The family of this 52-nucleotide sequence from Blastochloris tepida is "ffh sRNA". The organism belongs to Blastochloris, within Bacteria. It scores 62 bits against the family's covariance model.
[Rfam]
RNA sequence: GAGCCCGGAGGUCAACACCCGACAGCGCGAUGCGCCCUCGGGUGCGCUCGGC
Numbered sequence: 001g002a003g004c005c006c007g008g009a010g011g012u013c014a015a016c017a018c019c020c021g022a023c024a025g026c027g028c029g030a031u032g033c034g035c036c037c038u039c040g041g042g043u044g045c046g047c048u049c050g051g052c
Stems, first nucleotide, its partner, number of pairs: 016044007025035004
Dot-bracket structure: ...............(((((((..((((...))))..)))))))........